A member of the RNA family "MIR6152 microRNA precursor family" from Nicotiana attenuata, 97 nucleotides long. Pairs were carried over by alignment from the consensus structure, which was predicted with RNAalifold.
RNA sequence: UGGACAUAUUAUUGUAUUCGACUAUAUUCACGGCGUGAAAUAGGGGAUUACAUUAUUUUUAAAACAGAAAGUGAAUCAAUUAACAUAAUAGUGUCAC
Numbered sequence: 001u002g003g004a005c006a007u008a009u010u011a012u013u014g015u016a017u018u019c020g021a022c023u024a025u026a027u028u029c030a031c032g033g034c035g036u037g038a039a040a041u042a043g044g045g046g047a048u049u050a051c052a053u054u055a056u057u058u059u060u061a062a063a064a065c066a067g068a069a070a071g072u073g074a075a076u077c078a079a080u081u082a083a084c085a086u087a088a089u090a091g092u093g094u095c096a097c
Stems, first nucleotide, its partner, number of pairs: 003095002009091007017083002020081002023078001026076006035065002037059007